[Rfam]
RNA sequence: CACGUUCAUCCCUACAGGGACGGAAGUAAGCCAUAGUGCUGAAGGAACGCAAU
Numbered sequence: 001c002a003c004g005u006u007c008a009u010c011c012c013u014a015c016a017g018g019g020a021c022g023g024a025a026g027u028a029a030g031c032c033a034u035a036g037u038g039c040u041g042a043a044g045g046a047a048c049g050c051a052a053u
Stems, first nucleotide, its partner, number of pairs: 003049005009020004023050001029040003
The record is a 53-nucleotide RNA sequence, which matches "Glutamine riboswitch aptamer (glnA leader)" in Rfam.